Background
The record is a 91-nucleotide sequence from Nicotiana sylvestris, which matches "Small nucleolar RNA snoR26" in Rfam. A reference for the family is Brown et al. (2001), "Multiple snoRNA gene clusters from Arabidopsis", RNA.
RNA sequence: AAAGCAUCAAUGAUGAGUAGUAUAACUCGUUAUCCUUGCACUUUGAUUCUUUAAAUGAAGAAAAUUAUGGGGAAAAUAUUCUGAGAUGCUU
Number, nucleotide and partner (000 for none) at each position: 001a000002a091003a090004g089005c088006a087007u086008c085009a000010a000011u000012g000013a000014u000015g000016a000017g000018u000019a000020g000021u000022a000023u000024a000025a000026c000027u000028c000029g000030u000031u000032a000033u000034c000035c000036u000037u000038g000039c000040a000041c000042u000043u000044u000045g000046a000047u000048u000049c000050u000051u000052u000053a000054a000055a000056u000057g000058a000059a000060g000061a000062a000063a000064a000065u000066u000067a000068u000069g000070g000071g000072g000073a000074a000075a000076a000077u000078a000079u000080u000081c000082u000083g000084a000085g008086a007087u006088g005089c004090u003091u002